[Rfam]
RNA sequence: GGUGUGCGAUAGAAUUACCUCCAAGUGGUGCACACUGGGCAACGUAUACUCAUACGGCAAAAAAGUCUAC
Numbered sequence: 001g002g003u004g005u006g007c008g009a010u011a012g013a014a015u016u017a018c019c020u021c022c023a024a025g026u027g028g029u030g031c032a033c034a035c036u037g038g039g040c041a042a043c044g045u046a047u048a049c050u051c052a053u054a055c056g057g058c059a060a061a062a063a064a065g066u067c068u069a070c
Stems, first nucleotide, its partner, number of pairs: 001036007017029003043056005
Annotation
This 70-nucleotide RNA sequence from Rodentolepis nana belongs to the Rfam family "HDV ribozyme from F. prausnitzii". Rfam 15.1 lists 3,803 matches to the family in 91 species. Pairs were carried over by alignment from the consensus structure, which is taken from published work. The match comes from Rfam's covariance-model search (46 bits). For this family Rfam cites "Widespread occurrence of self-cleaving ribozymes" (Webb et al., Science, 2009).